The record is a 90-nucleotide RNA from Thiocapsa marina, which matches "t44 RNA" in Rfam. From the family's description: This family consists of a number of bacterial RNA genes of between 135 and 170 bases in length. The t44 gene has been identified in several species of enteric bacteria but homologs have also been identified in Pseudomonas and Coxiella species. The t44 gene is found between the map and rpsB genes in all species in the full alignment apart from Shigella flexneri. The function of this RNA is unknown. The literature on the family includes a 2002 paper in Nucleic Acids Res by Tjaden et al., "Transcriptome analysis of Escherichia coli using high-density oligonucleotide probe arrays".
[Rfam]
RNA sequence: CGGGCGCCGGAAAAUGUCCGCACACGCAUCGACACAACCGGCCGGGUGCCUGGUAAACAGGUUGCCGCUUGGGAUGCGUGGAGGCCCAAC
Numbered sequence: 001c002g003g004g005c006g007c008c009g010g011a012a013a014a015u016g017u018c019c020g021c022a023c024a025c026g027c028a029u030c031g032a033c034a035c036a037a038c039c040g041g042c043c044g045g046g047u048g049c050c051u052g053g054u055a056a057a058c059a060g061g062u063u064g065c066c067g068c069u070u071g072g073g074a075u076g077c078g079u080g081g082a083g084g085c086c087c088a089a090c
Stems, first nucleotide, its partner, number of pairs: 023080008035071003039067004048062005